RNA sequence: UUGCACAGUGAGCACCCAAGUGUGCUUCAUGGUUCCCUUGGCUUUGACUCUGUGCUGGAAGAAAGUCUGUUCUUUUCUUCUGCAUUGAAAGGAGUAUUUAACCUUUUAAAUAUAUUCAGAAAGGCUUCACGUUA
Dot-bracket structure: ..((((((.(..((.(((((.(.(((....))).).)))))...))..))))))).((((.(.....).)))).....((((.(((((((((.........)))))).))).....))))..............

Overview: The family of this 134-nucleotide RNA from Carlito syrichta is "Small nucleolar RNA SNORA22". Pairs were carried over by alignment from the consensus structure, which was predicted with RNAfold. ACA22 is a member of the H/ACA class of snoRNA that guide the sites of modification of uridines to pseudouridines. A search with the family's covariance model found it, with a score of 127 bits. Rfam classes the family as an H/ACA-box small nucleolar RNA.